[Rfam]
RNA sequence: CUGAGCCAAUGAUGUGCUGUUAUCCCUGUCUGAACAUUCAGCUAUGAAGGGAAAAUUCUUUUCUGAGGCUUAA
Numbered sequence: 001c002u003g004a005g006c007c008a009a010u011g012a013u014g015u016g017c018u019g020u021u022a023u024c025c026c027u028g029u030c031u032g033a034a035c036a037u038u039c040a041g042c043u044a045u046g047a048a049g050g051g052a053a054a055a056u057u058c059u060u061u062u063c064u065g066a067g068g069c070u071u072a073a
Stems, first nucleotide, its partner, number of pairs: 002072006
RNA: Small nucleolar RNA R38
Organism: Microcaecilia unicolor